[Rfam]
Notes:
Rfam assigns this 46-nucleotide sequence from Callosobruchus maculatus to the family "Histone 3' UTR stem-loop". The literature on the family includes a 1995 paper in Nucleic Acids Res by Williams and Marzluff, "The sequence of the stem and flanking sequences at the 3' end of histone mRNA are critical determinants for the binding of the stem-loop binding protein". A search with the family's covariance model found it, with a score of 36 bits. The mRNAs of metazoan histone genes lack a poly-A tail. 3' end processing occurs at a site between a highly conserved stem-loop (modelled by this family) and a purine rich region around 20 nts downstream (the histone downstream element, or HDE). The stem-loop is bound by a 31 kDa stem-loop binding protein (SLBP - also termed the histone hairpin binding protein, or HBP). Together with U7 snRNA binding of the HDE, SLBP binding nucleate s the formation of the processing complex. It is annotated as a cis-regulatory element.

RNA sequence: AAAACGGUUCUUUUCAGAACCACAACCUUAUUUCUUGAAAUAAAGU
Numbered sequence: 001a002a003a004a005c006g007g008u009u010c011u012u013u014u015c016a017g018a019a020c021c022a023c024a025a026c027c028u029u030a031u032u033u034c035u036u037g038a039a040a041u042a043a044a045g046u
Stems, first nucleotide, its partner, number of pairs: 006021006